[Rfam]
RNA sequence: CACGUCAGCACGACUUGCUGACGUGGAAGGAAAUCGUGUCCUUGAGGGCGCGAUUUCCUUCCAUGUCAGCAAGUCACGCUGACGUGG
Numbered sequence: 001c002a003c004g005u006c007a008g009c010a011c012g013a014c015u016u017g018c019u020g021a022c023g024u025g026g027a028a029g030g031a032a033a034u035c036g037u038g039u040c041c042u043u044g045a046g047g048g049c050g051c052g053a054u055u056u057c058c059u060u061c062c063a064u065g066u067c068a069g070c071a072a073g074u075c076a077c078g079c080u081g082a083c084g085u086g087g
Stems, first nucleotide, its partner, number of pairs: 001086009012075010023064016040047002

Rfam assigns this 87-nucleotide RNA from Gossypium raimondii to the family "MIR7486 microRNA precursor family". Pairs were carried over by alignment from the consensus structure, which was predicted with RNAalifold. Rfam 15.1 lists 10,132 matches to the family in 36 species. The organism belongs to Gossypium, within Eukaryota.